[Rfam]
RNA sequence: AUGAAGUUAUUUUUUUGGUAAGUUGGUCAAUUGGCCAAUAGAAUGCUGACACACAUACAGUCUCGUCUGCGUGUUAAUAUUCUAUUAGCCAAUUGACUAACUUACUCCAAAAUAAACUUUAU
Numbered sequence: 001a002u003g004a005a006g007u008u009a010u011u012u013u014u015u016u017g018g019u020a021a022g023u024u025g026g027u028c029a030a031u032u033g034g035c036c037a038a039u040a041g042a043a044u045g046c047u048g049a050c051a052c053a054c055a056u057a058c059a060g061u062c063u064c065g066u067c068u069g070c071g072u073g074u075u076a077a078u079a080u081u082c083u084a085u086u087a088g089c090c091a092a093u094u095g096a097c098u099a100a101c102u103u104a105c106u107c108c109a110a111a112a113u114a115a116a117c118u119u120u121a122u
Stems, first nucleotide, its partner, number of pairs: 001122008012112004018105017037086009047076003051072002054069002
Dot-bracket structure: ((((((((...((((..(((((((((((((((((..(((((((((.(((.((.((............)).)).))).)))))))))..)))))))))))))))))...))))..))))))))
The record is a 122-nucleotide sequence from Panax ginseng, which matches "MIR6135 microRNA precursor family" in Rfam. The base pairs follow the family's consensus structure, which was predicted with RNAalifold. The source organism's lineage runs through Eukaryota, Viridiplantae, Mesangiospermae, Apiales and Panax.